A member of the RNA family "mir-148/mir-152 microRNA precursor family" from Gouania willdenowi, 74 nucleotides long. Gene Ontology terms of the family: RISC complex and miRNA-mediated post-transcriptional gene silencing. It scores 76 bits against the family's covariance model. A reference for the family is Lagos-Quintana et al. (2002), "Identification of tissue-specific microRNAs from mouse", Curr Biol. The family's consensus secondary structure was predicted with RNAalifold.

RNA sequence: UCCAGAUAAAGUUCUGUGAUACACUCAGACUCUUCACUGGCCGCAGUCAGUGCAUUACAGAACUUUGUUUUGGG
Numbered sequence: 001u002c003c004a005g006a007u008a009a010a011g012u013u014c015u016g017u018g019a020u021a022c023a024c025u026c027a028g029a030c031u032c033u034u035c036a037c038u039g040g041c042c043g044c045a046g047u048c049a050g051u052g053c054a055u056u057a058c059a060g061a062a063c064u065u066u067g068u069u070u071u072g073g074g
Base pairs, nucleotide, nucleotide: 004070005069006068007067008066009065010064011063012062013061014060015059016058022052023051024050025049028048029047030046031045
Dot-bracket structure: ...(((((((((((((.....((((..((((.............)))))))).....)))))))))))))....